This 61-nucleotide RNA sequence from Pristionchus pacificus belongs to the Rfam family "mir-8364 microRNA precursor family". Rfam links the family to the GO terms miRNA-mediated post-transcriptional gene silencing and RISC complex.
[Rfam]
RNA sequence: UCCUCAUUUCACGUGCUAUCUCACCGGUCUGAGAGGCGAGAGAGCACGCGACAUGAGAAGU
Number, nucleotide and partner (000 for none) at each position: 001u059002c000003c057004u056005c055006a054007u053008u000009u000010c050011a000012c048013g047014u046015g045016c044017u043018a000019u041020c040021u039022c038023a000024c000025c000026g000027g000028u000029c000030u000031g000032a000033g000034a000035g000036g000037c000038g022039a021040g020041a019042g000043a017044g016045c015046a014047c013048g012049c000050g010051a000052c000053a007054u006055g005056a004057g003058a000059a001060g000061u000
The family has 13 seed sequences and 3,320 matches in Rfam 15.1. The organism belongs to Pristionchus, within Eukaryota. The match comes from Rfam's covariance-model search (71 bits).